[Rfam]
The record is an 80-nucleotide RNA from Litchfieldia salsa, which matches "Glycine riboswitch aptamer" in Rfam. NCBI's taxonomy places the organism under Bacteria, Bacillota, Caryophanales, Bacillaceae, Litchfieldia.
RNA sequence: GGAGCUGCUUCUGGAGAUACCACAAUCCAAUGUGGAGCCGAAGGAUUCACAAUCUCAGGCAAAAGGACAGAAGAGUAACU
Numbered sequence: 001g002g003a004g005c006u007g008c009u010u011c012u013g014g015a016g017a018u019a020c021c022a023c024a025a026u027c028c029a030a031u032g033u034g035g036a037g038c039c040g041a042a043g044g045a046u047u048c049a050c051a052a053u054c055u056c057a058g059g060c061a062a063a064a065g066g067a068c069a070g071a072a073g074a075g076u077a078a079c080u
Stems, first nucleotide, its partner, number of pairs: 006075001008073006020035004037060003040056002044054003